[Rfam]
RNA sequence: AGAUAACUCCGAGUCCUCACGGCGAGGAUAGGAGUAACGGCUGUGUGGCACAGCCAUCGGUACACCUGUUCGACCGCGAGAGCGGGAUGUUUCGCACGAGAGAACAGAUCGUGUCGUAGACCGGCAAAUAUCCCAACCUGCGGGACGGGAAGCCGCGCCCUUCAGGGCGCGGA
Number, nucleotide and partner (000 for none) at each position: 001a000002g000003a000004u037005a000006a000007c034008u033009c032010c031011g000012a000013g029014u028015c027016c026017u025018c024019a000020c000021g000022g000023c000024g018025a017026g016027g015028a014029u013030a000031g010032g009033a008034g007035u000036a000037a004038c000039g055040g054041c053042u052043g051044u000045g000046u000047g000048g000049c000050a000051c043052a042053g041054c040055c039056a000057u000058c116059g115060g114061u113062a112063c111064a000065c000066c107067u106068g105069u104070u103071c102072g000073a000074c000075c000076g000077c000078g000079a000080g000081a000082g000083c000084g097085g000086g095087a000088u000089g000090u000091u000092u000093c000094g000095c086096a000097c084098g000099a000100g000101a000102g071103a070104a069105c068106a067107g066108a000109u000110c000111g063112u062113g061114u060115c059116g058117u000118a000119g000120a000121c000122c000123g000124g000125c000126a000127a000128a000129u000130a000131u150132c149133c148134c147135a000136a000137c144138c000139u000140g000141c000142g000143g000144g137145a000146c000147g134148g133149g132150a131151a000152g000153c172154c171155g170156c169157g168158c167159c166160c165161u000162u000163c000164a000165g160166g159167g158168c157169g156170c155171g154172g153173a000
Rfam assigns this 173-nucleotide sequence from Natrarchaeobius halalkaliphilus to the family "Sense overlapping transcript RNA 0042 (sot)". It scores 91 bits against the family's covariance model. For this family Rfam cites "Sense overlapping transcripts in IS1341-type transposase genes are functional non-coding RNAs in archaea" (Gomes-Filho et al., RNA Biol, 2015). Pairs were carried over by alignment from the consensus structure, which was predicted with RNAfold. It is annotated as a small RNA. NCBI's taxonomy places the organism under Archaea, Methanobacteriati, Halobacteria, Halobacteriales, Natrarchaeobius. Rfam 15.1 lists 196 matches to the family in 82 species.